About this RNA: The record is a 103-nucleotide sequence, which matches "Prevotella-2 RNA" in Rfam. The family's consensus secondary structure is taken from published work.
[Rfam]
RNA sequence: AGGCUUAGCCUCUCAAGAUAUCUCAUCAUCCGAUGAGUUUUUUUAUUAGUCAUGUGUGCUAAUGCUCGUGAGAGUAUGGUAUACAAAAAACAAAAAGUUGAGU
Dot-bracket structure: ((((...))))...((((...((((((....))))))...))))..........((((((...((((....))))..))))))....................